Description
Shown here is a 206-nucleotide RNA from Sparus aurata, a member of the family "Small nucleolar RNA U3". Gene Ontology terms of the family: nucleolus and RNA processing. It scores 120 bits against the family's covariance model.
RNA sequence: AAGACUUUACUUUCAGGGAUCAUUUCUUUAGUUGCUGACUUGAGGAAUGUGUUUCUAAAGAGUUUGGUCUCGCUCCCCACGAUGAAGAGUUGAGAUUUUUCCUUCAGAGCAGGAAACUGGUGGAAGACUUUGUUUCUCCUCCACUGUUGAAGAUUGUUCAGAGUUUCUGACUGAAGCUCUGAUGGAGGAAACAUGAUCUGAGUAGA
Numbered sequence: 001a002a003g004a005c006u007u008u009a010c011u012u013u014c015a016g017g018g019a020u021c022a023u024u025u026c027u028u029u030a031g032u033u034g035c036u037g038a039c040u041u042g043a044g045g046a047a048u049g050u051g052u053u054u055c056u057a058a059a060g061a062g063u064u065u066g067g068u069c070u071c072g073c074u075c076c077c078c079a080c081g082a083u084g085a086a087g088a089g090u091u092g093a094g095a096u097u098u099u100u101c102c103u104u105c106a107g108a109g110c111a112g113g114a115a116a117c118u119g120g121u122g123g124a125a126g127a128c129u130u131u132g133u134u135u136c137u138c139c140u141c142c143a144c145u146g147u148u149g150a151a152g153a154u155u156g157u158u159c160a161g162a163g164u165u166u167c168u169g170a171c172u173g174a175a176g177c178u179c180u181g182a183u184g185g186a187g188g189a190a191a192c193a194u195g196a197u198c199u200g201a202g203u204a205g206a
Base pairs, nucleotide, nucleotide: 001041002040003039005037007034009032010031011030015027016026017025018024049065051063053062054061077205079203080202095194096193098191099190100189101188102187103186104185105184106183109157110156111155119145120144121143122142126138127137160180161179162178163177164176165175166174167173

The family's RNA type in Rfam is C/D-box small nucleolar RNA. The source organism's lineage runs through Eukaryota, Vertebrata, Teleostomi, Euacanthomorphacea and Sparus. The literature on the family includes a 1997 paper in Nucleic Acids Res by Zwieb, "The uRNA database". Small nucleolar RNAs (snoRNAs) are involved in the processing and modification of rRNA in the nucleolus. There are two main classes of snoRNAs: the box C/D class, and the box H/ACA class. U3 snoRNA is a member of the box C/D class. The family's consensus secondary structure is taken from published work.